UnaL2 LINE 3' element: a 54-nucleotide RNA sequence from Salmo trutta.
RNA sequence: CUAAUGCACUAAUGUAAGUUGCUAUGGAUAAUAGCAUCUGCUAAAUUACAAAAA
Numbered sequence: 001c002u003a004a005u006g007c008a009c010u011a012a013u014g015u016a017a018g019u020u021g022c023u024a025u026g027g028a029u030a031a032u033a034g035c036a037u038c039u040g041c042u043a044a045a046u047u048a049c050a051a052a053a054a
Base pairs, nucleotide, nucleotide: 013043014041015040016039020036021035022034023033024032025031

The family's consensus secondary structure is taken from published work.
It scores 57 bits against the family's covariance model.